[Rfam]
RNA sequence: ACCUGCUACGCUGUAGCAGCACGUAAAUAUUGGCGUGUGAAAAAAGCCCCCAACCCCAAUAUUAGCAGUGCUGCUUCAGUGUGACGGGA
Numbered sequence: 001a002c003c004u005g006c007u008a009c010g011c012u013g014u015a016g017c018a019g020c021a022c023g024u025a026a027a028u029a030u031u032g033g034c035g036u037g038u039g040a041a042a043a044a045a046g047c048c049c050c051c052a053a054c055c056c057c058a059a060u061a062u063u064a065g066c067a068g069u070g071c072u073g074c075u076u077c078a079g080u081g082u083g084a085c086g087g088g089a
Stems, first nucleotide, its partner, number of pairs: 002088004013077001015075008024065001026063008035054001
The record is an 89-nucleotide RNA from Oryzias latipes, which matches "mir-15 microRNA precursor family" in Rfam. The family is grouped with related families in Rfam's "mir-15 clan". NCBI's taxonomy places the organism under Eukaryota, Chordata, Actinopteri, Adrianichthyoidei, Oryzias. The family's consensus secondary structure was predicted with RNAalifold. On this family, see Lagos-Quintana et al., Science 2001: "Identification of novel genes coding for small expressed RNAs".